[Rfam]
RNA sequence: AAUAAUGAAAGGGAGCUCCCUUCAGUCCAAGUAAAGACGAAAAAAAGAUGAAAUUAUCUCCUGCAUCAUUCACACAUUCGCAAUAGAUAUCAUGUUCGGGUGUUCUAUUGCGUUUGAAUGAAUGAGUCAGGAGCUAAUUCAAAUCCCUUUAUUCGUCCAUGAGUGGACUGAAGGAAGCUCUCUUAAACUAUUUC
Numbered sequence: 001a002a003u004a005a006u007g008a009a010a011g012g013g014a015g016c017u018c019c020c021u022u023c024a025g026u027c028c029a030a031g032u033a034a035a036g037a038c039g040a041a042a043a044a045a046a047g048a049u050g051a052a053a054u055u056a057u058c059u060c061c062u063g064c065a066u067c068a069u070u071c072a073c074a075c076a077u078u079c080g081c082a083a084u085a086g087a088u089a090u091c092a093u094g095u096u097c098g099g100g101u102g103u104u105c106u107a108u109u110g111c112g113u114u115u116g117a118a119u120g121a122a123u124g125a126g127u128c129a130g131g132a133g134c135u136a137a138u139u140c141a142a143a144u145c146c147c148u149u150u151a152u153u154c155g156u157c158c159a160u161g162a163g164u165g166g167a168c169u170g171a172a173g174g175a176a177g178c179u180c181u182c183u184u185a186a187a188c189u190a191u192u193u194c
Base pairs, nucleotide, nucleotide: 013180014179015178016177017176019174020173023170024169025168026167027166028165029164036157058133059132061130062129063128067124068123069122070121075116
Dot-bracket structure: ............(((((.((..(((((((......(.....................((.(((...((((....(........................................)....))))...))).)).......................)......)))))))..)).)))))..............
This 194-nucleotide RNA sequence from Arachis hypogaea belongs to the Rfam family "MIR159 microRNA precursor family". The family has 66 seed sequences and 3,649 matches in Rfam 15.1. The organism belongs to Arachis, within Eukaryota. On this family, see Jones-Rhoades and Bartel, Mol Cell 2004: "Computational identification of plant microRNAs and their targets, including a stress-induced miRNA".